The record is an 86-nucleotide RNA sequence from a Clostridia bacterium, which matches "NiCo (Nickel/Cobalt) riboswitch aptamer" in Rfam. The organism belongs to Clostridia, within Bacteria. For this family Rfam cites "Bacterial riboswitches cooperatively bind Ni(2+) or Co(2+) ions and control expression of heavy metal transporters" (Furukawa et al., Mol Cell, 2015). Its Rfam clan is "NiCo_riboswitches". The family's consensus secondary structure is taken from published work.
RNA sequence: UGGGUAUAAAGUAGAGCAGGCGAUCGCAUUUGCGGUGGGGCUGGGCUGAGUAUUCAGCAGCAGGAAUAAUAACCUGUGGGACUAUU
Numbered sequence: 001u002g003g004g005u006a007u008a009a010a011g012u013a014g015a016g017c018a019g020g021c022g023a024u025c026g027c028a029u030u031u032g033c034g035g036u037g038g039g040g041c042u043g044g045g046c047u048g049a050g051u052a053u054u055c056a057g058c059a060g061c062a063g064g065a066a067u068a069a070u071a072a073c074c075u076g077u078g079g080g081a082c083u084a085u086u
Stems, first nucleotide, its partner, number of pairs: 010085001012084003017080001019042003023036005045058005060077005